[Rfam]
RNA sequence: GAUGGUAUUUGGCAAUGGUAGAACUCACACUGGUGAGAAAGUCAGAUCCGGUGGUUCUAGACUUGCCAACUACUACU
Numbered sequence: 001g002a003u004g005g006u007a008u009u010u011g012g013c014a015a016u017g018g019u020a021g022a023a024c025u026c027a028c029a030c031u032g033g034u035g036a037g038a039a040a041g042u043c044a045g046a047u048c049c050g051g052u053g054g055u056u057c058u059a060g061a062c063u064u065g066c067c068a069a070c071u072a073c074u075a076c077u
Stems, first nucleotide, its partner, number of pairs: 003075004009069007019059006028053006

This 77-nucleotide RNA from Triplophysa tibetana belongs to the Rfam family "mir-182 microRNA precursor family". For this family Rfam cites "Identification and expression profiling of microRNAs during bovine oocyte maturation using heterologous approach" (Tesfaye et al., Mol Reprod Dev, 2009).